[Rfam]
RNA sequence: GCAGUUUUCAUUGGGGAGUAGCCUGUUUCCUUGCUGUAUAGAGGAAAUAGAUGCAUCAACAUACUUGAUCAACCGAUCAUGGUGCAUUUGAUUAUUGCGUCGGCAAGACAGAUAUUU
Numbered sequence: 001g002c003a004g005u006u007u008u009c010a011u012u013g014g015g016g017a018g019u020a021g022c023c024u025g026u027u028u029c030c031u032u033g034c035u036g037u038a039u040a041g042a043g044g045a046a047a048u049a050g051a052u053g054c055a056u057c058a059a060c061a062u063a064c065u066u067g068a069u070c071a072a073c074c075g076a077u078c079a080u081g082g083u084g085c086a087u088u089u090g091a092u093u094a095u096u097g098c099g100u101c102g103g104c105a106a107g108a109c110a111g112a113u114a115u116u117u
Base pairs, nucleotide, nucleotide: 026047027046028045029044030043031042049089050088051087052086053085054084055083056082057081058080066079067078068077069076070075
Rfam assigns this 117-nucleotide RNA sequence from Affinundibacterium fentianense to the family "Manganese Mn2+ riboswitch aptamer (yybP-ykoY)". Rfam links the family to the GO term manganese ion binding. Rfam's curators write: This RNA was originally discovered in E. coli during a large scale screen and was named SraF. The family was later found to exist upstream of related families of protein genes in many bacteria, including the the yybP and ykoK genes in B. subtilis. The specific functions of these proteins are unknown, but this structured RNA element may be involved in their genetic regulation as a riboswitch.